[Rfam]
RNA sequence: CCGGCAAUCAGACCUACUUACGUACGGCAGGAGCGGGGGACCCAGGUAAGCCGCCGAUCCGGUAUCCGGAUCGGCUCGGGGUGAAGUCGCAUUCGCGUGCGGCCAGGCAACUCCAGCCUGAACCCGACAGCUCACCUCGUAGGCGACGGAGAGGAAUUCA
Numbered sequence: 001c002c003g004g005c006a007a008u009c010a011g012a013c014c015u016a017c018u019u020a021c022g023u024a025c026g027g028c029a030g031g032a033g034c035g036g037g038g039g040a041c042c043c044a045g046g047u048a049a050g051c052c053g054c055c056g057a058u059c060c061g062g063u064a065u066c067c068g069g070a071u072c073g074g075c076u077c078g079g080g081g082u083g084a085a086g087u088c089g090c091a092u093u094c095g096c097g098u099g100c101g102g103c104c105a106g107g108c109a110a111c112u113c114c115a116g117c118c119u120g121a122a123c124c125c126g127a128c129a130g131c132u133c134a135c136c137u138c139g140u141a142g143g144c145g146a147c148g149g150a151g152a153g154g155a156a157u158u159c160a
Base pairs, nucleotide, nucleotide: 001031002030033140034139035138036137037136038135043078079125080124081123087102088101089100090099105119106118107117108116
Rfam assigns this 160-nucleotide RNA from Streptomyces sp. TSRI0281 to the family "c-di-AMP riboswitch aptamer (ydaO/yuaA leader)". It scores 62 bits against the family's covariance model. The family has 106 seed sequences and 7,607 matches in Rfam 15.1. The pairing is the family consensus, mapped onto this sequence. The source organism's lineage runs through Bacteria, Bacillati, Actinomycetes, Streptomycetaceae and Streptomyces.